[Rfam]
RNA sequence: AGCCUCAUUUUCCACGAGAAUGGGCACUUCUGGUUGCGUGUCACGGAAUUCCUAAUGUGGCUAAACUGAGACCAUAGACCAUGUUUCCAGCUCAGGAAAUGUACUGCAAGGGUGACGAUGAGACCUGUAAUUUUU
Numbered sequence: 001a002g003c004c005u006c007a008u009u010u011u012c013c014a015c016g017a018g019a020a021u022g023g024g025c026a027c028u029u030c031u032g033g034u035u036g037c038g039u040g041u042c043a044c045g046g047a048a049u050u051c052c053u054a055a056u057g058u059g060g061c062u063a064a065a066c067u068g069a070g071a072c073c074a075u076a077g078a079c080c081a082u083g084u085u086u087c088c089a090g091c092u093c094a095g096g097a098a099a100u101g102u103a104c105u106g107c108a109a110g111g112g113u114g115a116c117g118a119u120g121a122g123a124c125c126u127g128u129a130a131u132u133u134u135u
Stems, first nucleotide, its partner, number of pairs: 002061003006057003021045002023042005074128004088114002091111002
Rfam assigns this 135-nucleotide RNA from Canis lupus to the family "Small nucleolar RNA SNORA1". The base pairs follow the family's consensus structure, which was predicted with PFOLD. Its family is annotated with RNA processing and nucleolus in the Gene Ontology. The family has 29 seed sequences and 1,282 matches in Rfam 15.1. About the family: ACA1 is a member of the H/ACA class of snoRNA that guide the sites of modification of uridines to pseudouridines. By type it is an H/ACA-box small nucleolar RNA.